[Rfam]
Description:
Ribosomal protein L10 leader: a 152-nucleotide RNA sequence from Staphylococcus haemolyticus. Rfam classes the family as a cis-regulatory leader. Rfam describes the family as follows. This family is a putative r-protein leader autoregulatory structure found in B. subtilis and other low-GC Gram-positive bacteria. NCBI's taxonomy places the organism under Bacteria, Bacilli, Caryophanales, Staphylococcus, Staphylococcus haemolyticus. The base pairs follow the family's consensus structure, which was predicted with CMfinder.
RNA sequence: UUUAUUGUGAUUAUUUUACCUAAGACAGUAGGAGUUAUAGUAUAACUUAAAAAUUAUCCUGCCGAGGCUAAAAUUGACUUGAACGUGUGAUCAUAAAAAUGAUCUUUCAAGCGCUUUUUGCCGUGGGUAGAAAGUGCUUUUUUUAUUGAGAA
Numbered sequence: 001u002u003u004a005u006u007g008u009g010a011u012u013a014u015u016u017u018a019c020c021u022a023a024g025a026c027a028g029u030a031g032g033a034g035u036u037a038u039a040g041u042a043u044a045a046c047u048u049a050a051a052a053a054u055u056a057u058c059c060u061g062c063c064g065a066g067g068c069u070a071a072a073a074u075u076g077a078c079u080u081g082a083a084c085g086u087g088u089g090a091u092c093a094u095a096a097a098a099a100u101g102a103u104c105u106u107u108c109a110a111g112c113g114c115u116u117u118u119u120g121c122c123g124u125g126g127g128u129a130g131a132a133a134g135u136g137c138u139u140u141u142u143u144u145a146u147u148g149a150g151a152a
Stems, first nucleotide, its partner, number of pairs: 028062006034046003111137010